[Rfam]
RNA sequence: AAGCAGCAAUCUGGCAGAUGAUCAAAACUGUCUGACACACUUUGAGCUUGCUAUAGCAACAAAGUCUAGCCUAUUCCAGUGCUCUCUCCUGUAUGACAUAAGCCAUUACAUAGACUUAGACAGU
Numbered sequence: 001a002a003g004c005a006g007c008a009a010u011c012u013g014g015c016a017g018a019u020g021a022u023c024a025a026a027a028c029u030g031u032c033u034g035a036c037a038c039a040c041u042u043u044g045a046g047c048u049u050g051c052u053a054u055a056g057c058a059a060c061a062a063a064g065u066c067u068a069g070c071c072u073a074u075u076c077c078a079g080u081g082c083u084c085u086c087u088c089c090u091g092u093a094u095g096a097c098a099u100a101a102g103c104c105a106u107u108a109c110a111u112a113g114a115c116u117u118a119g120a121c122a123g124u
Base pairs, nucleotide, nucleotide: 010045011044012039013036015034016033017032018031019030020029062117063116064115065114066113067112068111072110074108079103080102085098087096088095